[Rfam]
RNA: MIR5565 microRNA precursor family
Organism: Miscanthus lutarioriparius
RNA sequence: GCGCAUGUAUUCAUCUCAAUUCACAUGUGUUGAAGUGGAUUGGGGUGGAAUUAAACUAAAUUACAUUCCAUUCCACUCCAACGCACGUGGAUUGAGGUGGAUACAUAU
Numbered sequence: 001g002c003g004c005a006u007g008u009a010u011u012c013a014u015c016u017c018a019a020u021u022c023a024c025a026u027g028u029g030u031u032g033a034a035g036u037g038g039a040u041u042g043g044g045g046u047g048g049a050a051u052u053a054a055a056c057u058a059a060a061u062u063a064c065a066u067u068c069c070a071u072u073c074c075a076c077u078c079c080a081a082c083g084c085a086c087g088u089g090g091a092u093u094g095a096g097g098u099g100g101a102u103a104c105a106u107a108u
Base pairs, nucleotide, nucleotide: 005106006105007104008103009102010101011100012099013098014097016095017094018093019092020091021090022089023088024087026085027084028083029082030081031080032079035076036075037074038073039072041070042069043068045066046065047064